[Rfam]
Rfam assigns this 88-nucleotide RNA from Pelodiscus sinensis to the family "Small nucleolar RNA SNORD127". The literature on the family includes a 2006 paper in Nucleic Acids Res by Yang et al., "snoSeeker: an advanced computational package for screening of guide and orphan snoRNA genes in the human genome".
RNA sequence: CGGCAACAAUGAUGACAGGUUUUCACACUGUAUGUAAAGCAUGUUCUUGCUACAUGGAGACACCAGUCCCUCUAAGCUGAUGUUGCCG
Dot-bracket structure: (((((((..........................................................................)))))))
Numbered sequence: 001c002g003g004c005a006a007c008a009a010u011g012a013u014g015a016c017a018g019g020u021u022u023u024c025a026c027a028c029u030g031u032a033u034g035u036a037a038a039g040c041a042u043g044u045u046c047u048u049g050c051u052a053c054a055u056g057g058a059g060a061c062a063c064c065a066g067u068c069c070c071u072c073u074a075a076g077c078u079g080a081u082g083u084u085g086c087c088g
Stems, first nucleotide, its partner, number of pairs: 001088007